The family of this 64-nucleotide sequence from Caldinitratiruptor microaerophilus is "Fluoride riboswitch aptamer (crcB RNA motif)".
Nucleotides: 064
Base pairs, nucleotide, nucleotide: 010025011024012023013022016055017054018053019052020051021050032045033044034043035042
Number, partner (000 for none) and nucleotide at each position: 001000a002000u003000c004000a005000c006000g007000g008000c009000a010025g011024g012023c013022g014000a015000u016055g017054g018053a019052g020051c021050u022013c023012g024011c025010c026000g027000g028000a029000a030000c031000c032045g033044c034043u035042g036000c037000c038000u039000g040000c041000g042035c043034a044033g045032c046000u047000g048000a049000u050021a051020g052019c053018u054017c055016c056000u057000a058000c059000c060000c061000u062000u063000u064000c